[Rfam]
Selenocysteine transfer RNA: a 77-nucleotide RNA from Clarias magur. Lineage of the source: Eukaryota > Actinopterygii > Clupeocephala > Ostariophysi > Clarias. The match comes from Rfam's covariance-model search (49 bits).
RNA sequence: GCCUUGGUGCCUUGGUGGUCCGGGGUGCAGGCUUCAAACCUGUAGCUGCCAGAGUGGUUCAACUCCACCUUUUGGGU
Numbered sequence: 001g002c003c004u005u006g007g008u009g010c011c012u013u014g015g016u017g018g019u020c021c022g023g024g025g026u027g028c029a030g031g032c033u034u035c036a037a038a039c040c041u042g043u044a045g046c047u048g049c050c051a052g053a054g055u056g057g058u059u060c061a062a063c064u065c066c067a068c069c070u071u072u073u074g075g076g077u
Base pairs, nucleotide, nucleotide: 001077002076003075004074006072007071009069010025011024012023013022014021015020026044027043028042029041030040031039046052047051054068055067056066057065